[Rfam]
RNA: mir-731 microRNA precursor family
RNA sequence: AGGUGUAUUUUCCUUAAUGACACGUUUUCUCCCGGAUUGCUGAUGCCACUGGAUGCAACCGGGAAUUUCGUGUCAGCCAGGAAUGACACCA
Numbered sequence: 001a002g003g004u005g006u007a008u009u010u011u012c013c014u015u016a017a018u019g020a021c022a023c024g025u026u027u028u029c030u031c032c033c034g035g036a037u038u039g040c041u042g043a044u045g046c047c048a049c050u051g052g053a054u055g056c057a058a059c060c061g062g063g064a065a066u067u068u069c070g071u072g073u074c075a076g077c078c079a080g081g082a083a084u085g086a087c088a089c090c091a
Stems, first nucleotide, its partner, number of pairs: 002090005008085001010083003018075007030064006037058004043054002